[Rfam]
RNA sequence: UGCCAUGGUAUUUUUACGAUCUACUUGCUGUUGCUUCUUGCUGUACCUUUGGUA
Numbered sequence: 001u002g003c004c005a006u007g008g009u010a011u012u013u014u015u016a017c018g019a020u021c022u023a024c025u026u027g028c029u030g031u032u033g034c035u036u037c038u039u040g041c042u043g044u045a046c047c048u049u050u051g052g053u054a
Base pairs, nucleotide, nucleotide: 001054002053003052004051005050007047008046009045010044011043018041021040027034028033

Source information
Shown here is a 54-nucleotide sequence from Regulus satrapa, a member of the family "Avian HBV RNA encapsidation signal epsilon". It is annotated as a cis-regulatory element. The match comes from Rfam's covariance-model search (45 bits).